[Rfam]
RNA sequence: ACCGAGCUUAGUAACGUGGGCUUGUAACCCAAGUGGGGGUAUUGAGGUGAUGGAACAUGUUCACGACUUUCUGAUUCGGGCUCUGGUUUGGGCAUUAUGUUGGCCUGCCCUAUCCAAGUUGGGAGUUGGUCCAUGUUUGAUAGGCUAAAGCCUGUCACAUGUGGACUCUAAAGGUGAGGGAAUUGCGUGAGGCUGGUUUCACAGAGCAACGAAAACUUCCCGCUCUUGUCAGUGGAAGGAUAACAGGCUUGCGCCUUCCUGGCCCAUUAGCAUUCAGUUGGAUGUGAUCUUAAUUGGACCAUCAUUUUU
Numbered sequence: 001a002c003c004g005a006g007c008u009u010a011g012u013a014a015c016g017u018g019g020g021c022u023u024g025u026a027a028c029c030c031a032a033g034u035g036g037g038g039g040u041a042u043u044g045a046g047g048u049g050a051u052g053g054a055a056c057a058u059g060u061u062c063a064c065g066a067c068u069u070u071c072u073g074a075u076u077c078g079g080g081c082u083c084u085g086g087u088u089u090g091g092g093c094a095u096u097a098u099g100u101u102g103g104c105c106u107g108c109c110c111u112a113u114c115c116a117a118g119u120u121g122g123g124a125g126u127u128g129g130u131c132c133a134u135g136u137u138u139g140a141u142a143g144g145c146u147a148a149a150g151c152c153u154g155u156c157a158c159a160u161g162u163g164g165a166c167u168c169u170a171a172a173g174g175u176g177a178g179g180g181a182a183u184u185g186c187g188u189g190a191g192g193c194u195g196g197u198u199u200c201a202c203a204g205a206g207c208a209a210c211g212a213a214a215a216c217u218u219c220c221c222g223c224u225c226u227u228g229u230c231a232g233u234g235g236a237a238g239g240a241u242a243a244c245a246g247g248c249u250u251g252c253g254c255c256u257u258c259c260u261g262g263c264c265c266a267u268u269a270g271c272a273u274u275c276a277g278u279u280g281g282a283u284g285u286g287a288u289c290u291u292a293a294u295u296g297g298a299c300c301a302u303c304a305u306u307u308u309u
Stems, first nucleotide, its partner, number of pairs: 001040003004023007028037003044308010056296002058292002061287005067281002071277004076272001078265004083261001085259002090256003100251001102249006109239002113236004118230001120228007128167009138157008168173001174221001176219004184213001186211003193204003